[Rfam]
The record is a 161-nucleotide part of an RNA from Lucilia cuprina, which matches "Microsporidia small subunit ribosomal RNA" in Rfam.
For this family Rfam cites "Crystal structure of the ribosome at 5.5 A resolution" (Yusupov et al., Science, 2001).
The family is grouped with related families in Rfam's "SSU clan".
A search with the family's covariance model found it, with a score of 758 bits.
Pairs were carried over by alignment from the consensus structure, which is taken from published work.
The source organism's lineage runs through Eukaryota, Altocrustacea, Muscomorpha, Oestroidea and Lucilia.
Rfam links the family to the GO terms structural constituent of ribosome and ribosome.
Nucleotides: 161
Stems, first nucleotide, its partner, number of pairs: 001125001004121002007118001010114004015109002020105009030095003035090004130153010
Number, partner (000 for none) and nucleotide at each position: 001125g002000c003000c004121c005120g006000u007118c008000g009000u010114u011113a012112c013111u014000a015109c016108c017000g018000a019000u020105u021104g022103a023102a024101u025100g026099g027098c028097u029000u030095a031094g032093u033000g034000a035090g036089a037088u038087c039000c040000u041000a042000g043000g044000a045000g046000g047000a048000u049000u050000c051000u052000a053000g054000c055000a056000u057000g058000a059000g060000g061000g062000u063000g064000a065000c066000c067000u068000c069000u070000a071000g072000c073000g074000u075000g076000a077000a078000a079000c080000c081000a082000a083000a084000u085000u086000c087038g088037a089036u090035c091000a092000a093032a094031c095030u096000u097028g098027g099026u100025c101024a102023u103022u104021u105020a106000g107000a108016g109015g110000a111013a112012g113011u114010a115000c116000a117000a118007g119000u120005c121004g122000u123000a124000a125001c126000a127000a128000g129000g130153u131152u132151u133150c134149c135148g136147u137146a138145g139144g140000u141000g142000a143000a144139c145138c146137u147136g148135c149134g150133g151132a152131a153130g154000g155000a156000u157000c158000a159000u160000u161000u